[Rfam]
Annotation:
Rfam assigns this 155-nucleotide RNA from Lachnospiraceae bacterium AM48-27BH to the family "Clostridiales-1 RNA". Lineage of the source: Bacteria > Bacillati > Bacillota > Lachnospirales > Lachnospiraceae. The family's RNA type in Rfam is small RNA. A search with the family's covariance model found it, with a score of 106 bits.
RNA sequence: GUCAGAAGUUCGACGCAAGCUUGCUUGCAGGAGAAUUUUUGACCUUGGGACCCGCCAAAAACAUGAGUAAGCAGCCAUUUUUCAAAGAAAAAUGAGCGAAUUACGAAUGGUUUUGAGAAUUGCGGGAGCACGCAGUGCAGAGCAAUUCGGUAUCA
Numbered sequence: 001g002u003c004a005g006a007a008g009u010u011c012g013a014c015g016c017a018a019g020c021u022u023g024c025u026u027g028c029a030g031g032a033g034a035a036u037u038u039u040u041g042a043c044c045u046u047g048g049g050a051c052c053c054g055c056c057a058a059a060a061a062c063a064u065g066a067g068u069a070a071g072c073a074g075c076c077a078u079u080u081u082u083c084a085a086a087g088a089a090a091a092a093u094g095a096g097c098g099a100a101u102u103a104c105g106a107a108u109g110g111u112u113u114u115g116a117g118a119a120u121u122g123c124g125g126g127a128g129c130a131c132g133c134a135g136u137g138c139a140g141a142g143c144a145a146u147u148c149g150g151u152a153u154c155a
Stems, first nucleotide, its partner, number of pairs: 001043011014030001015028005057114004062109003067104004074097002076094008117148007128138004